[Rfam]
RNA sequence: UUUUUAUUGGACGUUGAUUGUUACAUGUCACGAUUUUAUUAGAUGUUAAUUUGAUGCACUUAAUUAACGUCAACCUCUAAUAAAAUUGUGACACAUGACGAUCAACGUCC
Number, nucleotide and partner (000 for none) at each position: 001u000002u000003u000004u000005u000006a000007u000008u000009g000010g000011a000012c000013g000014u000015u000016g000017a000018u000019u000020g099021u098022u097023a096024c000025a000026u093027g000028u000029c090030a089031c088032g000033a086034u085035u084036u083037u000038a081039u080040u079041a000042g000043a000044u000045g000046u000047u000048a000049a000050u000051u000052u000053g000054a000055u000056g000057c000058a000059c000060u000061u000062a000063a000064u000065u000066a000067a000068c000069g000070u000071c000072a000073a000074c000075c000076u000077c000078u000079a040080a039081u038082a000083a036084a035085a034086u033087u000088g031089u030090g029091a000092c000093a026094c000095a000096u023097g022098a021099c020100g000101a000102u000103c000104a000105a000106c000107g000108u000109c000110c000

A member of the RNA family "MIR1520 microRNA precursor family" from Glycine max, 110 nucleotides long.
The family's consensus secondary structure was predicted with RNAalifold.
It scores 71 bits against the family's covariance model.
The source organism's lineage runs through Eukaryota, Spermatophyta, Mesangiospermae, Fabales and Glycine subgen. Soja.
The family is grouped with related families in Rfam's "MIR1520 microRNA precursor clan".